[Rfam]
RNA sequence: AUCAAACAGGUGCAGGCGAAUGGAGGCCGAUAUGUUCUUCGAUAAUGUGGUUAUCGCUGGCGUUGUGACAGUCGGGCUGAUGCUGCUCUUCUUCGCGGGCCUGGGCAUUUUCAUCUGGAAGGAUUCGAGCAAACGCAAAUCGCGUUGAUUCUUCCGAUACAACGAGCACGCAAGGCAUUUAGGGCGACUUCGGUCGCCCAUUUUUUUU
Numbered sequence: 001a002u003c004a005a006a007c008a009g010g011u012g013c014a015g016g017c018g019a020a021u022g023g024a025g026g027c028c029g030a031u032a033u034g035u036u037c038u039u040c041g042a043u044a045a046u047g048u049g050g051u052u053a054u055c056g057c058u059g060g061c062g063u064u065g066u067g068a069c070a071g072u073c074g075g076g077c078u079g080a081u082g083c084u085g086c087u088c089u090u091c092u093u094c095g096c097g098g099g100c101c102u103g104g105g106c107a108u109u110u111u112c113a114u115c116u117g118g119a120a121g122g123a124u125u126c127g128a129g130c131a132a133a134c135g136c137a138a139a140u141c142g143c144g145u146u147g148a149u150u151c152u153u154c155c156g157a158u159a160c161a162a163c164g165a166g167c168a169c170g171c172a173a174g175g176c177a178u179u180u181a182g183g184g185c186g187a188c189u190u191c192g193g194u195c196g197c198c199c200a201u202u203u204u205u206u207u208u
Base pairs, nucleotide, nucleotide: 011097012096013095047057048056049055075084076083077082166176167175169174182199183198184197185196186195187194188193
Dot-bracket structure: ..........(((.................................(((.....))).................(((....)))..........)))....................................................................((.(....))).....(((((((....))))))).........
PhrS: a 208-nucleotide sequence from Pseudomonas sp. HLS-6. The match comes from Rfam's covariance-model search (193 bits).